Background: The record is an 83-nucleotide RNA sequence from Acanthoscelides obtectus, which matches "mir-927 microRNA precursor family" in Rfam. The organism belongs to Acanthoscelides, within Eukaryota. For this family Rfam cites "Evolutionary flux of canonical microRNAs and mirtrons in Drosophila" (Berezikov et al., Nat Genet, 2010). The base pairs follow the family's consensus structure, which was predicted with RNAalifold. Rfam links the family to the GO terms miRNA-mediated post-transcriptional gene silencing and RISC complex. A search with the family's covariance model found it, with a score of 73 bits. Rfam 15.1 lists 174 matches to the family in 143 species.
[Rfam]
RNA sequence: AGACGUAUGUUUUGGUUUAGAAUUCCUACGCUUUACCGUAUUUAACAACAGGCAAAGCGUUUGAGUUCUGAAUCCAAAAUAUA
Numbered sequence: 001a002g003a004c005g006u007a008u009g010u011u012u013u014g015g016u017u018u019a020g021a022a023u024u025c026c027u028a029c030g031c032u033u034u035a036c037c038g039u040a041u042u043u044a045a046c047a048a049c050a051g052g053c054a055a056a057g058c059g060u061u062u063g064a065g066u067u068c069u070g071a072a073u074c075c076a077a078a079a080u081a082u083a
Stems, first nucleotide, its partner, number of pairs: 010077002014074008023065003028060007036052002